[Rfam]
RNA sequence: CUCUUCGGCACGGGGUGCCUUGUUUGAAUGAUUCAAUUCAGUCAGGGCUGAGAACACACCCGUAUACCUGAUCCAGAUCAUACUGGCGGAGGAAUGCCUGUCGCAGUUUGC
Numbered sequence: 001c002u003c004u005u006c007g008g009c010a011c012g013g014g015g016u017g018c019c020u021u022g023u024u025u026g027a028a029u030g031a032u033u034c035a036a037u038u039c040a041g042u043c044a045g046g047g048c049u050g051a052g053a054a055c056a057c058a059c060c061c062g063u064a065u066a067c068c069u070g071a072u073c074c075a076g077a078u079c080a081u082a083c084u085g086g087c088g089g090a091g092g093a094a095u096g097c098c099u100g101u102c103g104c105a106g107u108u109u110g111c
Base pairs, nucleotide, nucleotide: 007098008097009096010095011062012061013060014059016056017048018047019046020045021044067092068091069090073086074085075084076083
RNA: TPP riboswitch aptamer (THI element)